[Rfam]
RNA sequence: CCUUGUUCCGAGGGGUGCUCGCAAGAGCUGAGAUGGCCUGACGGCCGAACCCAUCGAACCUGAUCCGGGUCAUACCGGCGGAGGGACUGGAACGCGGCUGCGCC
Number, nucleotide and partner (000 for none) at each position: 001c000002c000003u000004u000005g000006u092007u091008c090009c089010g088011a000012g052013g051014g050015g000016u047017g028018c027019u026020c025021g000022c000023a000024a000025g020026a019027g018028c017029u000030g000031a000032g000033a000034u000035g046036g045037c044038c043039u000040g000041a000042c000043g038044g037045c036046c035047g016048a000049a000050c014051c013052c012053a000054u000055c000056g000057a000058a000059c084060c083061u082062g000063a000064u000065c078066c077067g076068g075069g000070u000071c000072a000073u000074a000075c068076c067077g066078g065079c000080g000081g000082a061083g060084g059085g000086a000087c000088u010089g009090g008091a007092a006093c000094g000095c000096g000097g000098c000099u000100g000101c000102g000103c000104c000
A member of the RNA family "TPP riboswitch aptamer (THI element)" from Allobosea sp. Root483D1, 104 nucleotides long. A search with the family's covariance model found it, with a score of 70 bits.